The family of this 73-nucleotide RNA sequence from an Olavius algarvensis spirochete endosymbiont is "tRNA". It is annotated as a transfer RNA. Gene Ontology term of the family: triplet codon-amino acid adaptor activity. The match comes from Rfam's covariance-model search (69 bits). The organism belongs to Spirochaetales, within Bacteria.
RNA sequence: CGGAAUGUAGCCUAGCGGCCAGGGCGCCUGCUUUGGGAGCAGGAGAUCAGAGGUUCGAGUCCUCUCAUUCCGA
Numbered sequence: 001c002g003g004a005a006u007g008u009a010g011c012c013u014a015g016c017g018g019c020c021a022g023g024g025c026g027c028c029u030g031c032u033u034u035g036g037g038a039g040c041a042g043g044a045g046a047u048c049a050g051a052g053g054u055u056c057g058a059g060u061c062c063u064c065u066c067a068u069u070c071c072g073a
Stems, first nucleotide, its partner, number of pairs: 001072007010025004027043005049065005